This 591-nucleotide part of an RNA from Plasmodium gonderi belongs to the Rfam family "Eukaryotic large subunit ribosomal RNA". The match comes from Rfam's covariance-model search (2482 bits).

RNA sequence: AUUUUCGAAAGAUCUCUCAGGAUCGCUGGAGUUGAUUAAUAUAAUUUUACCAGGUAGAGAUAAUGAUUAGAGGAAUCAGGGAAAUUGUUUUCCUUGACCUAUUCUCAAACUCCCAAUAGGUAAAAAGGGCUUUAUAUCUUAAUUUGUAUUUAGCUCAAAAUAUUCUAUUAAAUAAAAUAACUCCAAGUGGGCCAUUUUUGGUAAGCAGAACUGGCGAUGAGGGAUGCUCCUAACGCUUGGAUAAGGUGCCUAAAUAUUCGCUCAUGAGAUCCCAUAAAAGGUGUUGGUUCAUUAUGACAGUAGGACGGUGGUCAUGGAAGUCGAAAUCCGCUAAGGAGUGUGUAACAACUUACCUACCGAAUGAACUAGCCCUGAAAAUGGAUGGCGCUAAAGCGAAUUACCGAUACCAGGCCAUAAAAGGAGGAAAAAUAAAAAAGAAAAGAAUUAUUUAUACUCGUAAAAAAGGUAUUUAAUAUAUUUUUUUCUUUUUUACGAUUUUUUUACGUUCUAUCUUUUUAUGAGUAGAAAAUCGUGGGGUUUGUGUCGAAGCGAAAUACGUGAGUUUUCGUGGAACAUAUCCCUAGUGCAGAU
Numbered sequence: 001a002u003u004u005u006c007g008a009a010a011g012a013u014c015u016c017u018c019a020g021g022a023u024c025g026c027u028g029g030a031g032u033u034g035a036u037u038a039a040u041a042u043a044a045u046u047u048u049a050c051c052a053g054g055u056a057g058a059g060a061u062a063a064u065g066a067u068u069a070g071a072g073g074a075a076u077c078a079g080g081g082a083a084a085u086u087g088u089u090u091u092c093c094u095u096g097a098c099c100u101a102u103u104c105u106c107a108a109a110c111u112c113c114c115a116a117u118a119g120g121u122a123a124a125a126a127g128g129g130c131u132u133u134a135u136a137u138c139u140u141a142a143u144u145u146g147u148a149u150u151u152a153g154c155u156c157a158a159a160a161u162a163u164u165c166u167a168u169u170a171a172a173u174a175a176a177a178u179a180a181c182u183c184c185a186a187g188u189g190g191g192c193c194a195u196u197u198u199u200g201g202u203a204a205g206c207a208g209a210a211c212u213g214g215c216g217a218u219g220a221g222g223g224a225u226g227c228u229c230c231u232a233a234c235g236c237u238u239g240g241a242u243a244a245g246g247u248g249c250c251u252a253a254a255u256a257u258u259c260g261c262u263c264a265u266g267a268g269a270u271c272c273c274a275u276a277a278a279a280g281g282u283g284u285u286g287g288u289u290c291a292u293u294a295u296g297a298c299a300g301u302a303g304g305a306c307g308g309u310g311g312u313c314a315u316g317g318a319a320g321u322c323g324a325a326a327u328c329c330g331c332u333a334a335g336g337a338g339u340g341u342g343u344a345a346c347a348a349c350u351u352a353c354c355u356a357c358c359g360a361a362u363g364a365a366c367u368a369g370c371c372c373u374g375a376a377a378a379u380g381g382a383u384g385g386c387g388c389u390a391a392a393g394c395g396a397a398u399u400a401c402c403g404a405u406a407c408c409a410g411g412c413c414a415u416a417a418a419a420g421g422a423g424g425a426a427a428a429a430u431a432a433a434a435a436a437g438a439a440a441a442g443a444a445u446u447a448u449u450u451a452u453a454c455u456c457g458u459a460a461a462a463a464a465g466g467u468a469u470u471u472a473a474u475a476u477a478u479u480u481u482u483u484u485c486u487u488u489u490u491u492a493c494g495a496u497u498u499u500u501u502u503a504c505g506u507u508c509u510a511u512c513u514u515u516u517u518a519u520g521a522g523u524a525g526a527a528a529a530u531c532g533u534g535g536g537g538u539u540u541g542u543g544u545c546g547a548a549g550c551g552a553a554a555u556a557c558g559u560g561a562g563u564u565u566u567c568g569u570g571g572a573a574c575a576u577a578u579c580c581c582u583a584g585u586g587c588a589g590a591u
Base pairs, nucleotide, nucleotide: 001530002529003528004527005526006525011024012023013022014021015020027185028184029183030182031181032180033179045125046124047123048122049121050120051119057113058111059110064107065106066105069102071100072099073098076097077096078095079094080093081092083090127166128165129164131162133160135158191215192214193213194212196210197209198208199207200206220231221230222229235412236411237410238409239408245402246401247400254399256398259395260394261393279373280372281371283370284369285368286367287366288365289364290363291362292361300357301356302355303354304353306330307329308328312324313323331335336351340349341348413520414519415518416517417516418515419514420513421512531586533583534582535581536580537579540575541574542573549569550568556563557562
The base pairs follow the family's consensus structure, which is taken from published work. Taxonomically the source falls in Plasmodium (Eukaryota, Apicomplexa, Haemosporida, Plasmodiidae).